[Rfam]
Nucleotides: 058
Stems, first nucleotide, its partner, number of pairs: 002055006009048002013044006020037001022035003
Number, partner (000 for none) and nucleotide at each position: 001000a002055g003054u004053g005052c006051a007050c008000u009048u010047c011000c012000u013044g014043a015042g016041g017040c018039c019000u020037c021000u022035g023034g024033g025000u026000a027000u028000c029000a030000a031000a032000u033024u034023c035022c036000u037020g038000u039018g040017g041016c042015c043014u044013c045000u046000a047010g048009g049000u050007g051006u052005g053004u054003a055002c056000c057000c058000u